[Rfam]
RNA: mir-1388 microRNA precursor family
Organism: Pelodiscus sinensis
RNA sequence: CAAUGAGGGGUGUUUCGAGGACUGUCUAACCUGAGAAUGGUGAAACAUGAAGGUCAAUCUCAGGUUCGUCAGCCCAUGAGACACUUUCUCCAG
Numbered sequence: 001c002a003a004u005g006a007g008g009g010g011u012g013u014u015u016c017g018a019g020g021a022c023u024g025u026c027u028a029a030c031c032u033g034a035g036a037a038u039g040g041u042g043a044a045a046c047a048u049g050a051a052g053g054u055c056a057a058u059c060u061c062a063g064g065u066u067c068g069u070c071a072g073c074c075c076a077u078g079a080g081a082c083a084c085u086u087u088c089u090c091c092a093g
Stems, first nucleotide, its partner, number of pairs: 005090003008086009019075002022072003026068001028066009038056002